[Rfam]
Nucleotides: 133
Base pairs, nucleotide, nucleotide: 003061004060005059006058008054010052018047019046020045021044022043026039065133066132073126074125076123077122087113088112089111090110091109093107095105096104
Number, partner (000 for none) and nucleotide at each position: 001000c002000a003061g004060c005059g006058u007000c008054u009000c010052u011000g012000a013000a014000a015000c016000c017000c018047c019046c020045u021044g022043g023000a024000u025000g026039u027000c028000u029000c030000u031000c032000u033000c034000c035000c036000a037000u038000a039026g040000a041000u042000g043022c044021c045020a046019g047018g048000a049000c050000a051000a052010g053000a054008a055000g056000a057000g058006a059005c060004g061003c062000c063000a064000g065133a066132g067000c068000c069000a070000a071000c072000c073126u074125g075000u076123g077122a078000g079000a080000a081000u082000u083000c084000c085000a086000a087113a088112g089111a090110g091109c092000c093107g094000a095105g096104a097000c098000u099000c100000c101000c102000u103000g104096u105095u106000u107093c108000u109091g110090c111089u112088c113087u114000a115000u116000u117000u118000c119000a120000c121000c122077u123076c124000u125074c126073a127000c128000a129000c130000a131000u132066u133065u
Small nucleolar RNA SNORA14: a 133-nucleotide sequence from Aquarana catesbeiana. Pairs were carried over by alignment from the consensus structure, which was predicted with RNAfold. Rfam describes the family as follows. ACA14 is a member of the H/ACA class of snoRNA that guide the sites of modification of uridines to pseudouridines.